[Rfam]
RNA sequence: UUGUCGUGGUCCCUACGGCAUGAUCGGAAGGGGUGCGGGGUGGAGUCGACGGCCGGGGCCGGACAGCUGCUGGCCAUCAGCGACCUGCACA
Numbered sequence: 001u002u003g004u005c006g007u008g009g010u011c012c013c014u015a016c017g018g019c020a021u022g023a024u025c026g027g028a029a030g031g032g033g034u035g036c037g038g039g040g041u042g043g044a045g046u047c048g049a050c051g052g053c054c055g056g057g058g059c060c061g062g063a064c065a066g067c068u069g070c071u072g073g074c075c076a077u078c079a080g081c082g083a084c085c086u087g088c089a090c091a
Stems, first nucleotide, its partner, number of pairs: 003053005011032004